[Rfam]
RNA: OmrA-B family
Organism: Paramixta manurensis
RNA sequence: CCCAGAGGUAUUGAUUGGUGAAUAGCAAUCUAUCCCGGUAGAUUGACACUCAGUUCAGUUGCACCAACCCACGCGGAUGCGUGGGUUUUUUUU
Numbered sequence: 001c002c003c004a005g006a007g008g009u010a011u012u013g014a015u016u017g018g019u020g021a022a023u024a025g026c027a028a029u030c031u032a033u034c035c036c037g038g039u040a041g042a043u044u045g046a047c048a049c050u051c052a053g054u055u056c057a058g059u060u061g062c063a064c065c066a067a068c069c070c071a072c073g074c075g076g077a078u079g080c081g082u083g084g085g086u087u088u089u090u091u092u093u
Stems, first nucleotide, its partner, number of pairs: 016066005021055001028043006067086008